[Rfam]
RNA: CRISPR RNA direct repeat element
Organism: Frankia nepalensis
RNA sequence: GCAGCGCCGAGGCCCCGGCCUCGGCGAGGGUCACAAC
Number, nucleotide and partner (000 for none) at each position: 001g000002c000003a000004g000005c026006g025007c024008c023009g022010a021011g020012g019013c018014c000015c000016c000017g000018g013019c012020c011021u010022c009023g008024g007025c006026g005027a000028g000029g000030g000031u000032c000033a000034c000035a000036a000037c000